[Rfam]
About this RNA
The record is a 587-nucleotide RNA, which matches "ROOL RNA" in Rfam. It is annotated as a small RNA.

RNA sequence: UAUUUGAAUCAUGCCUAUUAUUAACUCAGUGAACAAAGCAUGUUACUGCUCUGAGACGCACAGUAAUUUCCGUUUGGUUGAAUAGGGAUACCUGUUCGAUUGGGCGGCUAUGGUAUAGUGAUAUACCGUAUGGAGGCGGAAACCGCCAACAAAAAUGUGUGUUGCCAAGAGUUGUCGCCGCAAAAUGCACGGAACUUUCGGGCGUAACAAUAGACGUUUCCUGUGGAAAAAUAAGCCUAAGGGGUUAUGGUGUGGCAGCCAUAAUGACAGAGGUAGGCCAACAAUACGCUCCGUCUUGAAGCAGAAGAAAUUCUGCUAUAACGAAAGUCGUCGGUUAAAGUAGCCGUAUGACGGGUGAGAAAUUUAUCUAUUUAAUAAUUCUAAUGAUUUUGAUAAGUAAAACGGUGAAAUUUAUGAGUAAACAGUCUCAUACAGGUUUAUGUAUACGAUAUGGCUCAACUUAUUGUAAUACUGGGGUAAGAAGUUAGGGGUUGCUCCCCGAAGCUCAGACUUAUCUUCCUGGUGGCAGAAUAUUGUAAGAAGACAAUGGAGGUAGGGUGAAGACUCAAUAAUAGGUAUGAUUCAGA
Numbered sequence: 001u002a003u004u005u006g007a008a009u010c011a012u013g014c015c016u017a018u019u020a021u022u023a024a025c026u027c028a029g030u031g032a033a034c035a036a037a038g039c040a041u042g043u044u045a046c047u048g049c050u051c052u053g054a055g056a057c058g059c060a061c062a063g064u065a066a067u068u069u070c071c072g073u074u075u076g077g078u079u080g081a082a083u084a085g086g087g088a089u090a091c092c093u094g095u096u097c098g099a100u101u102g103g104g105c106g107g108c109u110a111u112g113g114u115a116u117a118g119u120g121a122u123a124u125a126c127c128g129u130a131u132g133g134a135g136g137c138g139g140a141a142a143c144c145g146c147c148a149a150c151a152a153a154a155a156u157g158u159g160u161g162u163u164g165c166c167a168a169g170a171g172u173u174g175u176c177g178c179c180g181c182a183a184a185a186u187g188c189a190c191g192g193a194a195c196u197u198u199c200g201g202g203c204g205u206a207a208c209a210a211u212a213g214a215c216g217u218u219u220c221c222u223g224u225g226g227a228a229a230a231a232u233a234a235g236c237c238u239a240a241g242g243g244g245u246u247a248u249g250g251u252g253u254g255g256c257a258g259c260c261a262u263a264a265u266g267a268c269a270g271a272g273g274u275a276g277g278c279c280a281a282c283a284a285u286a287c288g289c290u291c292c293g294u295c296u297u298g299a300a301g302c303a304g305a306a307g308a309a310a311u312u313c314u315g316c317u318a319u320a321a322c323g324a325a326a327g328u329c330g331u332c333g334g335u336u337a338a339a340g341u342a343g344c345c346g347u348a349u350g351a352c353g354g355g356u357g358a359g360a361a362a363u364u365u366a367u368c369u370a371u372u373u374a375a376u377a378a379u380u381c382u383a384a385u386g387a388u389u390u391u392g393a394u395a396a397g398u399a400a401a402a403c404g405g406u407g408a409a410a411u412u413u414a415u416g417a418g419u420a421a422a423c424a425g426u427c428u429c430a431u432a433c434a435g436g437u438u439u440a441u442g443u444a445u446a447c448g449a450u451a452u453g454g455c456u457c458a459a460c461u462u463a464u465u466g467u468a469a470u471a472c473u474g475g476g477g478u479a480a481g482a483a484g485u486u487a488g489g490g491g492u493u494g495c496u497c498c499c500c501g502a503a504g505c506u507c508a509g510a511c512u513u514a515u516c517u518u519c520c521u522g523g524u525g526g527c528a529g530a531a532u533a534u535u536g537u538a539a540g541a542a543g544a545c546a547a548u549g550g551a552g553g554u555a556g557g558g559u560g561a562a563g564a565c566u567c568a569a570u571a572a573u574a575g576g577u578a579u580g581a582u583u584c585a586g587a
Base pairs, nucleotide, nucleotide: 008583015576016575019572022569025055026054027053028052029051037050038049039048040047057161058160059159060158061157062156071106072105073104074103075102076101078099079098080097081096082095083094084093085092086091109130110129111128112127113126114125115124116123117122135147136146137145138144139143173547183535190333191332192331194328195327196326197325198324199323200322201290202289203288204287205286206285217229218228219227220226235274236273237272238271244265245264246263247262248261249260250259253280254279255278256277291354292353293352294351295350301316302315303314304313305312337411343406344405345404346403347402394510397507418428433522434521435520436472474519475518476517477516480513481512484506486503488500489499490498491497556567557566558565559564
Record summary: About the family: Firmicutes, Fusobacteria (1 example), Tenericutes (1 example).